[Rfam]
RNA sequence: CUAGCCAUGGCGUUAGUAUGAGUGUCGUACAGCCUCCAGGCCCCCCCCUCCCGGGAGAGCCAUAGUGGUCUGCGGAACCGGUGAGUACACCGGAAUUGCCAGGAAGACUGGGUCCUUUCUUGGAUAAACCCACUCUGUGCCUGGCCAUUUGGGCGUGCCCCCGCAAGACUGCUAGCCGAGUAGCGUUGGGUUGCGAAAGGCCUUGUGGUACUGCCUGAUAGGGUGCUUGCGAGUGCCCCGGGAGGUCUCGUAGACCGUGCAUCAUGAGCACAGAUC
Number, nucleotide and partner (000 for none) at each position: 001c009002u000003a000004g000005c000006c000007a000008u000009g001010g000011c000012g000013u000014u000015a000016g000017u000018a000019u000020g000021a000022g000023u000024g000025u000026c000027g000028u000029a000030c000031a000032g000033c000034c000035u000036c000037c000038a000039g000040g000041c000042c000043c000044c000045c000046c000047c245048c244049u243050c242051c241052c240053g239054g238055g237056a000057g177058a000059g176060c175061c000062a000063u174064a173065g172066u171067g170068g169069u168070c167071u166072g164073c163074g162075g161076a000077a000078c093079c092080g091081g090082u089083g088084a000085g000086u000087a000088c083089a082090c081091c080092g079093g078094a149095a148096u147097u000098g000099c144100c143101a142102g141103g140104a000105a000106g135107a134108c000109u132110g131111g130112g129113u124114c123115c122116u000117u000118u000119c000120u000121u000122g115123g114124a113125u000126a000127a000128a000129c112130c111131c110132a109133c000134u107135c106136u000137g000138u000139g000140c103141c102142u101143g100144g099145c000146c000147a096148u095149u094150u000151g160152g159153g158154c000155g000156u000157g000158c153159c152160c151161c075162c074163g073164c072165a000166a071167g070168a069169c068170u067171g066172c065173u064174a063175g060176c059177c057178g000179a212180g211181u210182a209183g000184c207185g206186u000187u000188g203189g202190g201191u200192u199193g000194c000195g000196a000197a000198a000199g192200g191201c190202c189203u188204u000205g000206u185207g184208g000209u182210a181211c180212u179213g224214c223215c222216u221217g000218a000219u000220a000221g216222g215223g214224u213225g236226c235227u000228u000229g000230c000231g000232a000233g000234u000235g226236c225237c055238c054239c053240g052241g051242g050243a049244g048245g047246u000247c000248u000249c000250g000251u000252a000253g000254a000255c000256c000257g271258u270259g269260c268261a000262u000263c000264a000265u000266g000267a000268g260269c259270a258271c257272a000273g000274a000275u000276c000